[Rfam]
RNA sequence: GCCGGCCCCCAGGCCGGCCAUGACAUCGCACGAUGCGUGCGAGGUGCUUGUACCCAUGUUGCUCGAAGGAGGAUGUGGCUAUGAGAA
Numbered sequence: 001g002c003c004g005g006c007c008c009c010c011a012g013g014c015c016g017g018c019c020a021u022g023a024c025a026u027c028g029c030a031c032g033a034u035g036c037g038u039g040c041g042a043g044g045u046g047c048u049u050g051u052a053c054c055c056a057u058g059u060u061g062c063u064c065g066a067a068g069g070a071g072g073a074u075g076u077g078g079c080u081a082u083g084a085g086a087a
Stems, first nucleotide, its partner, number of pairs: 001018007023045002026042006047085006054078007062071003

The family of this 87-nucleotide sequence from Xanthobacter sp. SG618 is "Repression of heat shock gene expression (ROSE) element". Rfam 15.1 lists 381 matches to the family in 262 species. Pairs were carried over by alignment from the consensus structure, which is taken from published work. For this family Rfam cites "A mRNA-based thermosensor controls expression of rhizobial heat shock genes" (Nocker et al., Nucleic Acids Res, 2001). It scores 60 bits against the family's covariance model. Rfam describes the family as follows. This family represents a 5' UTR cis-regulatory element found in heat shock mRNAs and is known as the ROSE (repression of heat shock gene expression) element.